[Rfam]
Nucleotides: 112
Stems, first nucleotide, its partner, number of pairs: 002111006009104005015098011028085017049064004
Number, partner (000 for none) and nucleotide at each position: 001000a002111u003110a004109u005108a006107a007106g008000a009104a010103a011102a012101g013100a014000u015098u016097c017096a018095u019094u020093u021092u022091u023090c024089a025088g026000g027000u028085u029084c030083a031082u032081u033080g034079a035078a036077u037076a038075a039074c040073u041072g042071a043070u044069g045000u046000a047000u048000c049064u050063g051062g052061u053000u054000a055000u056000u057000c058000a059000a060000u061052g062051c063050c064049a065000g066000a067000u068000a069044c070043a071042u072041u073040a074039g075038u076037u077036a078035u079034u080033c081032a082031a083030u084029g085028a086000u087000c088025c089024u090023g091022a092021a093020a094019a095018a096017u097016g098015a099000a100013u101012c102011u103010u104009u105000g106007c107006u108005u109004a110003u111002a112000u
Source information: Rfam assigns this 112-nucleotide RNA from Trifolium medium to the family "MIR2593 microRNA precursor family". Rfam 15.1 lists 1,262 matches to the family in 6 species. The family's consensus secondary structure was predicted with RNAalifold.